Annotation
This 88-nucleotide RNA sequence from Falsihalocynthiibacter arcticus belongs to the Rfam family "Rhodo-rpoB RNA". The family's consensus secondary structure is taken from published work. NCBI's taxonomy places the organism under Bacteria, Pseudomonadati, Pseudomonadota, Alphaproteobacteria, Falsihalocynthiibacter.

RNA sequence: GGAUCGGGCGGAGCCGGUGGGCCGGUUUCGAGAAUAGAUCCGAAUUGUUUUGUUUUGCGAUACGUCCUUGUUGCCCAGCUUGGAUGUC
Dot-bracket structure: (((((....(((((((......))))))).......)))))....................((((((..(........)..)))))).